The record is a 92-nucleotide RNA sequence from Roseateles asaccharophilus, which matches "Selenocysteine transfer RNA" in Rfam.
[Rfam]
RNA sequence: GGAGGGGAGACGACACCGGUGUGUCGGCCGGGCUUCAAACCCGGUGGGUGGUGCCACGCGCCGCCGGGUGGGUUCGACUCCCAUUCCCCUCC
Numbered sequence: 001g002g003a004g005g006g007g008a009g010a011c012g013a014c015a016c017c018g019g020u021g022u023g024u025c026g027g028c029c030g031g032g033c034u035u036c037a038a039a040c041c042c043g044g045u046g047g048g049u050g051g052u053g054c055c056a057c058g059c060g061c062c063g064c065c066g067g068g069u070g071g072g073u074u075c076g077a078c079u080c081c082c083a084u085u086c087c088c089c090u091c092c
Base pairs, nucleotide, nucleotide: 001092002091003090004089005088006087007086008085009084011026012025013024014023015022016021027045028044029043030042031041032040047065048064049063050062051061069083070082071081072080
Record summary: Rfam 15.1 lists 4,211 matches to the family in 3,344 species.